[Rfam]
RNA: PhrS
Nucleotides: 219
Base pairs, nucleotide, nucleotide: 006105007104008103055065056064082093083092085090178188179187181186193210194209195208196207197206198205199204
Number, partner (000 for none) and nucleotide at each position: 001000c002000u003000c004000g005000a006105a007104g008103c009000c010000c011000g012000c013000g014000u015000g016000g017000u018000a019000c020000g021000g022000a023000c024000u025000g026000a027000u028000c029000a030000g031000g032000a033000g034000g035000u036000c037000c038000c039000u040000a041000u042000g043000u044000u045000u046000u047000u048000c049000g050000a051000c052000g053000u054000u055065g056064c057000a058000g059000u060000a061000u062000u063000c064056g065055c066000a067000g068000g069000u070000c071000u072000g073000g074000c075000g076000a077000c078000a079000g080000u081000g082093g083092g084000c085090c086000u087000u088000a089000u090085g091000u092083u093082c094000g095000c096000u097000u098000u099000c100000u101000u102000c103008g104007c105006u106000g107000g108000u109000a110000u111000u112000g113000g114000u115000u116000g117000g118000u119000u120000u121000a122000u123000c124000c125000g126000u127000a128000g129000c130000g131000a132000c133000a134000u135000c136000c137000g138000c139000a140000a141000g142000c143000a144000u145000a146000a147000a148000g149000c150000g151000c152000a153000g154000u155000a156000g157000g158000c159000g160000g161000u162000c163000a164000c165000u166000a167000c168000g169000g170000u171000u172000u173000c174000a175000c176000g177000g178188g179187c180000a181186c182000g183000c184000a185000a186181g187179g188178c189000u190000u191000u192000u193210g194209g195208g196207c197206a198205a199204c200000u201000u202000a203000g204199g205198u206197u207196g208195c209194c210193c211000a212000u213000u214000u215000u216000u217000u218000u219000g